[Rfam]
RNA sequence: CAACGUUCUCAGGGCGGGGCGCAAUUCCCCACCGGCGGUAAUGAUAUUUAUAUAUUUAGCCCGCGAGCGCUUGUGCUUUUUUAGCACGAGGUCAGCAGAUUUGGUGUGAUUCCAAAGCCGACGGUAUAGUCCGGAUAAAGAGAGAACGGGA
Dot-bracket structure: ...(((((((......(((.......))).[[((((((....................[[))))..((..........................))...(((((.......)))))]])).(((....]])))........)))))))...
Numbered sequence: 001c002a003a004c005g006u007u008c009u010c011a012g013g014g015c016g017g018g019g020c021g022c023a024a025u026u027c028c029c030c031a032c033c034g035g036c037g038g039u040a041a042u043g044a045u046a047u048u049u050a051u052a053u054a055u056u057u058a059g060c061c062c063g064c065g066a067g068c069g070c071u072u073g074u075g076c077u078u079u080u081u082u083a084g085c086a087c088g089a090g091g092u093c094a095g096c097a098g099a100u101u102u103g104g105u106g107u108g109a110u111u112c113c114a115a116a117g118c119c120g121a122c123g124g125u126a127u128a129g130u131c132c133g134g135a136u137a138a139a140g141a142g143a144g145a146a147c148g149g150g151a
Stems, first nucleotide, its partner, number of pairs: 004148007017029003031130002033120002035064004059118002067096002100116005122133003